A member of the RNA family "Selenocysteine insertion sequence 1", 66 nucleotides long. The incorporation of selenocysteine into a protein sequence is directed by an in-frame UGA codon (usually a stop codon) within the coding region of the mRNA. Selenoprotein mRNAs contain a conserved secondary structure in the 3' UTR that is required for the distinction of UGA stop from UGA selenocysteine. Rfam's curators put it in the seed alignment.

[Rfam]
RNA sequence: AUGUGGUCUUUAUGAAGGCAGGUGCAGAAACUAUGCACUAGUGGUGUCUGUCUGAUGUUUGGCCAU
Dot-bracket structure: (((.............(((((((((......((.....))...)))))))))...........)))